Overview:
sRNA-Xcc1: an 89-nucleotide sequence from Hahella chejuensis. The family has 74 seed sequences and 421 matches in Rfam 15.1. The family's consensus secondary structure was predicted with RNAalifold. The sequence is in the family's curated seed alignment. The family's RNA type in Rfam is small RNA.
[Rfam]
RNA sequence: GGCCGGGAGUUCUGCCGAAUACAAUACCCGCAAGGGGAAUAGGCAAAGCGGUCUCGUAGAGCCGUUGUCACCCUCCCGGUCGCCUUCUC
Numbered sequence: 001g002g003c004c005g006g007g008a009g010u011u012c013u014g015c016c017g018a019a020u021a022c023a024a025u026a027c028c029c030g031c032a033a034g035g036g037g038a039a040u041a042g043g044c045a046a047a048g049c050g051g052u053c054u055c056g057u058a059g060a061g062c063c064g065u066u067g068u069c070a071c072c073c074u075c076c077c078g079g080u081c082g083c084c085u086u087c088u089c
Stems, first nucleotide, its partner, number of pairs: 001081009013045003018040001027036003047066006